The record is an 86-nucleotide RNA sequence from Aythya fuligula, which matches "Small nucleolar RNA SNORD127" in Rfam. Its family is annotated with nucleolus and RNA processing in the Gene Ontology. The match comes from Rfam's covariance-model search (79 bits).
RNA sequence: AGGCAACAAUGAUGACAGGUAUUUUGACUGUAUGUAAUGUUCCAUUGCUGCAUGGAGACACCAGUCCCUCUAAACUGAUGUUGCCA
Numbered sequence: 001a002g003g004c005a006a007c008a009a010u011g012a013u014g015a016c017a018g019g020u021a022u023u024u025u026g027a028c029u030g031u032a033u034g035u036a037a038u039g040u041u042c043c044a045u046u047g048c049u050g051c052a053u054g055g056a057g058a059c060a061c062c063a064g065u066c067c068c069u070c071u072a073a074a075c076u077g078a079u080g081u082u083g084c085c086a
Stems, first nucleotide, its partner, number of pairs: 002085006